[Rfam]
RNA sequence: UGGUCAUUACCAAGGCUUUCAUAAUGCAGUUGUUCAUUUGCUGAGAACAUGAUCAGAAAACACACACACCUCCCUACUAGGUUUUCUACAUGUCACCUGCCUAGAGCAGUCAGCCCAUUGUGAGCAGUU
Number, nucleotide and partner (000 for none) at each position: 001u000002g000003g053004u052005c051006a050007u049008u000009a000010c000011c045012a000013a000014g000015g000016c000017u000018u000019u000020c000021a000022u000023a000024a000025u000026g041027c040028a039029g038030u000031u000032g000033u000034u000035c000036a000037u000038u029039u028040g027041c026042u000043g000044a000045g011046a000047a000048c000049a007050u006051g005052a004053u003054c000055a000056g000057a000058a000059a000060a000061c000062a000063c000064a000065c000066a000067c000068a000069c000070c000071u000072c000073c122074c000075u120076a119077c000078u000079a000080g115081g114082u113083u112084u000085u000086c000087u000088a000089c000090a000091u108092g107093u106094c000095a000096c000097c000098u000099g000100c000101c000102u000103a000104g000105a000106g093107c092108a091109g000110u000111c000112a083113g082114c081115c080116c000117a000118u000119u076120g075121u000122g073123a000124g000125c000126a000127g000128u000129u000